[Rfam]
RNA sequence: CUUCACCGAGCCCAGCCGCAACGGCGCGGUGCGGUCCUGCCCGUAGGUGGCCAGCAGCGCCUGCGCCUC
Dot-bracket structure: ...............((.....))(((....((...(((.(((....))).)))...))...)))....
RNA: ASpks TB sRNA
Organism: Streptomyces sp. NWU49